[Rfam]
RNA sequence: GGAAUUCUUCGGGGCAGGGUGCUGCGGAUGACGCAUAUUCCCGACCGACGGUAUAGUCCGUGAACUGCUUUUUGCAGCCGAACCGGUGAGAUUCCGGUACCGACAGUAUAGUCUGGAUGAGAGAAGAAAAAG
Numbered sequence: 001g002g003a004a005u006u007c008u009u010c011g012g013g014g015c016a017g018g019g020u021g022c023u024g025c026g027g028a029u030g031a032c033g034c035a036u037a038u039u040c041c042c043g044a045c046c047g048a049c050g051g052u053a054u055a056g057u058c059c060g061u062g063a064a065c066u067g068c069u070u071u072u073u074g075c076a077g078c079c080g081a082a083c084c085g086g087u088g089a090g091a092u093u094c095c096g097g098u099a100c101c102g103a104c105a106g107u108a109u110a111g112u113c114u115g116g117a118u119g120a121g122a123g124a125a126g127a128a129a130a131a132g
Base pairs, nucleotide, nucleotide: 005128006127007126008125009124010123017042018041019040044112045111046102047101048061049060050059051058056100057099065077066076082098083097084096085095086094104115105114106113
Background
FMN riboswitch aptamer (RFN element): a 132-nucleotide sequence from Roseburia sp. CAG:18. The family's consensus secondary structure is taken from published work.